[Rfam]
RNA sequence: GGCCGGUGAUGCUAAAUUUGUCCGUACCAUCUGAGAUUUAUAAUAUCUAUCUUUGAUGUAACUGCAAACUAUAUUCUGAGGCCG
Numbered sequence: 001g002g003c004c005g006g007u008g009a010u011g012c013u014a015a016a017u018u019u020g021u022c023c024g025u026a027c028c029a030u031c032u033g034a035g036a037u038u039u040a041u042a043a044u045a046u047c048u049a050u051c052u053u054u055g056a057u058g059u060a061a062c063u064g065c066a067a068a069c070u071a072u073a074u075u076c077u078g079a080g081g082c083c084g
Stems, first nucleotide, its partner, number of pairs: 001083004

A member of the RNA family "small nucleolar RNA snoR117" from Turnera subulata, 84 nucleotides long.
Rfam classes the family as a C/D-box small nucleolar RNA.
The family has 6 seed sequences and 419 matches in Rfam 15.1.